[Rfam]
RNA sequence: AUCACAAAUUACAGGCCACAGCAGAAGCACUCACAGUGCAGCCCUGUCAGAGUCCAACAAAUCUGCAAAUUCUGCU
Numbered sequence: 001a002u003c004a005c006a007a008a009u010u011a012c013a014g015g016c017c018a019c020a021g022c023a024g025a026a027g028c029a030c031u032c033a034c035a036g037u038g039c040a041g042c043c044c045u046g047u048c049a050g051a052g053u054c055c056a057a058c059a060a061a062u063c064u065g066c067a068a069a070u071u072c073u074g075c076u
Base pairs, nucleotide, nucleotide: 014043015042016041020076021075022074023073024072025071026070027039028038029037048065049064050063051062053060
Shown here is a 76-nucleotide RNA sequence from Crocodylus porosus, a member of the family "Mammalian CPEB3 ribozyme". It scores 47 bits against the family's covariance model. Rfam's curators write: The mammalian CPEB3 ribozyme is a self cleaving RNA located in the second intron of the CPEB3 gene which belongs to a family of genes regulating messenger RNA polyadenylation. This ribozyme is highly conserved and found only in mammals.